[Rfam]
RNA sequence: GGCAUGUGCUCAAAACAAGGGGCCUGAAAAAUGGCUCCGCUAUUUAUAACAUACCCAACUGGAAUCUGAGAUCACUGUGAUGAGGAGCGCAAAACUUGUGGCCUCCCUAUGAACAAAUUUUCUACAUGU
Numbered sequence: 001g002g003c004a005u006g007u008g009c010u011c012a013a014a015a016c017a018a019g020g021g022g023c024c025u026g027a028a029a030a031a032u033g034g035c036u037c038c039g040c041u042a043u044u045u046a047u048a049a050c051a052u053a054c055c056c057a058a059c060u061g062g063a064a065u066c067u068g069a070g071a072u073c074a075c076u077g078u079g080a081u082g083a084g085g086a087g088c089g090c091a092a093a094a095c096u097u098g099u100g101g102c103c104u105c106c107c108u109a110u111g112a113a114c115a116a117a118u119u120u121u122c123u124a125c126a127u128g129u
Base pairs, nucleotide, nucleotide: 002056005053006052007051008050013045014044015043017041020038021037022035023034024033070121071120076115077114078113081111082110084104085103088100089099090098091097092096
RNA: Small nucleolar RNA SNORA11